[Rfam]
RNA sequence: CGGCGGGACACCCUUCCCCAACGAAGGGCUAACUAUCUGAGAGGAUAGAUCAU
Dot-bracket structure: ..........((((((......))))))....((((((....)))))).....
Numbered sequence: 001c002g003g004c005g006g007g008a009c010a011c012c013c014u015u016c017c018c019c020a021a022c023g024a025a026g027g028g029c030u031a032a033c034u035a036u037c038u039g040a041g042a043g044g045a046u047a048g049a050u051c052a053u
Stems, first nucleotide, its partner, number of pairs: 011028006033048006

This 53-nucleotide RNA from Sinorhizobium sp. BG8 belongs to the Rfam family "serC leader". Gene Ontology term of the family: regulation of gene expression. Lineage of the source: Bacteria > Pseudomonadati > Alphaproteobacteria > Rhizobiaceae > Sinorhizobium.